[Rfam]
RNA: Histone 3' UTR stem-loop
Organism: Mytilus edulis
RNA sequence: AAAAAGGUUCUUUUCAGAACCACUAAAACUUUUCAAAAAGAAGUUU
Numbered sequence: 001a002a003a004a005a006g007g008u009u010c011u012u013u014u015c016a017g018a019a020c021c022a023c024u025a026a027a028a029c030u031u032u033u034c035a036a037a038a039a040g041a042a043g044u045u046u
Stems, first nucleotide, its partner, number of pairs: 006021006